RNA sequence: GUACUCCCUCCGUCCCAUAAUAUAAGAACGUUUUUGAUAUUAGCAUAGUGUUAAAAACGUUCUUAUAUAGUGGGACAGAGGGAGUAU
Number, nucleotide and partner (000 for none) at each position: 001g000002u000003a085004c084005u083006c000007c081008c080009u079010c078011c000012g000013u075014c074015c073016c072017a071018u000019a000020a068021u067022a066023u065024a064025a063026g062027a061028a060029c059030g058031u057032u056033u055034u054035u053036g052037a051038u050039a049040u048041u047042a000043g000044c000045a000046u000047a041048g040049u039050g038051u037052u036053a035054a034055a033056a032057a031058c030059g029060u028061u027062c026063u025064u024065a023066u022067a021068u020069a000070g000071u017072g016073g015074g014075a013076c000077a000078g010079a009080g008081g007082g000083a005084g004085u003086a000087u000
Description:
A member of the RNA family "MIR1120/MIR1122 microRNA precursor family" from Triticum turgidum, 87 nucleotides long. The family's consensus secondary structure was predicted with RNAalifold. On this family, see Yao et al., Genome Biol 2007: "Cloning and characterization of microRNAs from wheat (Triticum aestivum L.)".